[Rfam]
A member of the RNA family "mir-1290 microRNA precursor family" from Microcebus murinus, 76 nucleotides long. A search with the family's covariance model found it, with a score of 82 bits.
RNA sequence: GAGUAUCAUGUCAGCGCUCAAAAAGUUUCAGAUUUUGGAACAUUUCAGAUUUUGGAUUUUUGGAUUAUGGAUACUC
Numbered sequence: 001g002a003g004u005a006u007c008a009u010g011u012c013a014g015c016g017c018u019c020a021a022a023a024a025g026u027u028u029c030a031g032a033u034u035u036u037g038g039a040a041c042a043u044u045u046c047a048g049a050u051u052u053u054g055g056a057u058u059u060u061u062g063g064a065u066u067a068u069g070g071a072u073a074c075u076c
Base pairs, nucleotide, nucleotide: 001076002075003074004073005072006071007070013066014065018063019062020061021060022059023058024057027056028055029054030053031052032051034049035048036047037046038045039044